[Rfam]
RNA sequence: AUAUACACUAUAUGAUGUAUAAAUGUAUACACACUUCCUGUAUCUCCAUGUAUACAGUGUAUAUAUUAUACAUGUAUAGGUGUGUAUGU
Numbered sequence: 001a002u003a004u005a006c007a008c009u010a011u012a013u014g015a016u017g018u019a020u021a022a023a024u025g026u027a028u029a030c031a032c033a034c035u036u037c038c039u040g041u042a043u044c045u046c047c048a049u050g051u052a053u054a055c056a057g058u059g060u061a062u063a064u065a066u067u068a069u070a071c072a073u074g075u076a077u078a079g080g081u082g083u084g085u086a087u088g089u
Stems, first nucleotide, its partner, number of pairs: 003083004008079006015073008024065009039052005
Dot-bracket structure: ..((((.((((((.((((((((.(((((((((......(((((....)))))....)))))))))))))))))))))))))))......